[Rfam]
RNA sequence: GAUUAACAUAGAACGCUGCCGAAGACAGUAGGUGCCGAAAGGCAUAAGGAUUAAAACGCCUACCGAGGACUAAGUAUUCUAUUUAAGAUUACAGAGACCUUACUGUCAUGCAGUAAGGUUUUUUUAUGUUUUGA
Numbered sequence: 001g002a003u004u005a006a007c008a009u010a011g012a013a014c015g016c017u018g019c020c021g022a023a024g025a026c027a028g029u030a031g032g033u034g035c036c037g038a039a040a041g042g043c044a045u046a047a048g049g050a051u052u053a054a055a056a057c058g059c060c061u062a063c064c065g066a067g068g069a070c071u072a073a074g075u076a077u078u079c080u081a082u083u084u085a086a087g088a089u090u091a092c093a094g095a096g097a098c099c100u101u102a103c104u105g106u107c108a109u110g111c112a113g114u115a116a117g118g119u120u121u122u123u124u125u126a127u128g129u130u131u132u133g134a
Stems, first nucleotide, its partner, number of pairs: 028063006034043003097119010
Ribosomal protein L10 leader: a 134-nucleotide sequence from Blautia obeum. From the family's description: This family is a putative r-protein leader autoregulatory structure found in B. subtilis and other low-GC Gram-positive bacteria. It is located in the 5' untranslated regions of mRNAs encoding ribosomal proteins L10 and L12 (rplJ-rplL). A Rho-independent transcription terminator structure that is probably involved in regulation is included at the 3' end.